[Rfam]
RNA: Makes More Granules Regulator RNA (mmgR)
RNA sequence: CCUUCCUGCUUUCUUGGACGUUUCCUCCCUAAACUUGGCGGCGCUGCAAAGCGCCGCCACUUUUUUAUCCGGC
Numbered sequence: 001c002c003u004u005c006c007u008g009c010u011u012u013c014u015u016g017g018a019c020g021u022u023u024c025c026u027c028c029c030u031a032a033a034c035u036u037g038g039c040g041g042c043g044c045u046g047c048a049a050a051g052c053g054c055c056g057c058c059a060c061u062u063u064u065u066u067a068u069c070c071g072g073c
Base pairs, nucleotide, nucleotide: 008019010017011016037058038057039056040055041054042053043052044051045050